[Rfam]
RNA sequence: GGAGCCGGUCGGGCGGUCGCCGGCCCCCUUUGCGGGGGCGGGAGGAAAGUCCGAGCACCACAGGGCAGGGUGCUGGCUAACGGCCAGGGGGGGAAACCCCACGGAUAGCGCCACAGAAAGCAAACCGCCGCCGGCGCGCCGGCGGUAAGGGUGAAACGGUGAGGCAAGAGCUCACCAGCGGGGGCGGUGACGCCUCCGGCUAGGCAAACCCCACCCGGUGCAAGACCAAAUAGGGAGGCGUUGGAGGGCGGCCCGCCCGAGGCCUCCGGGUAGGUUGCUUGAGGCGCCGGGCAACCGGCGUCCUAGAGGAAUGACCGCCGCCCGGCCUUUUUGGCCGGGAACAGAACUCGGCUUACAGACCGACUCCGCCC
Numbered sequence: 001g002g003a004g005c006c007g008g009u010c011g012g013g014c015g016g017u018c019g020c021c022g023g024c025c026c027c028c029u030u031u032g033c034g035g036g037g038g039c040g041g042g043a044g045g046a047a048a049g050u051c052c053g054a055g056c057a058c059c060a061c062a063g064g065g066c067a068g069g070g071u072g073c074u075g076g077c078u079a080a081c082g083g084c085c086a087g088g089g090g091g092g093g094a095a096a097c098c099c100c101a102c103g104g105a106u107a108g109c110g111c112c113a114c115a116g117a118a119a120g121c122a123a124a125c126c127g128c129c130g131c132c133g134g135c136g137c138g139c140c141g142g143c144g145g146u147a148a149g150g151g152u153g154a155a156a157c158g159g160u161g162a163g164g165c166a167a168g169a170g171c172u173c174a175c176c177a178g179c180g181g182g183g184g185c186g187g188u189g190a191c192g193c194c195u196c197c198g199g200c201u202a203g204g205c206a207a208a209c210c211c212c213a214c215c216c217g218g219u220g221c222a223a224g225a226c227c228a229a230a231u232a233g234g235g236a237g238g239c240g241u242u243g244g245a246g247g248g249c250g251g252c253c254c255g256c257c258c259g260a261g262g263c264c265u266c267c268g269g270g271u272a273g274g275u276u277g278c279u280u281g282a283g284g285c286g287c288c289g290g291g292c293a294a295c296c297g298g299c300g301u302c303c304u305a306g307a308g309g310a311a312u313g314a315c316c317g318c319c320g321c322c323c324g325g326c327c328u329u330u331u332u333g334g335c336c337g338g339g340a341a342c343a344g345a346a347c348u349c350g351g352c353u354u355a356c357a358g359a360c361c362g363a364c365u366c367c368g369c370c371c
Base pairs, nucleotide, nucleotide: 001367002366003365004364006362007361008360009359010358011356012319013318014317015316016315017314018313020042021041023039024038025037026036027035028034047354048353049352051351052350053349054348055347056220057219058218059217063254064253065252066251068216069215070214071213072212073087074086075085076084077083088102089100090099091098092097103211104210108209110205111204112203125150126149127146128145129144130143131142132141133140134139158176159175160174161173162172163171178200179198180197181196182195183194184193185192186191224276225275226274227273234267235266236265237264238263239262246258247257248256249255283302284301285300286299287298288297289296290295

The family of this 371-nucleotide sequence from Desulfarculus baarsii is "Bacterial RNase P class A". Its family is annotated with ribonuclease P activity, tRNA processing and dimeric ribonuclease P complex in the Gene Ontology. The base pairs follow the family's consensus structure, which is taken from published work.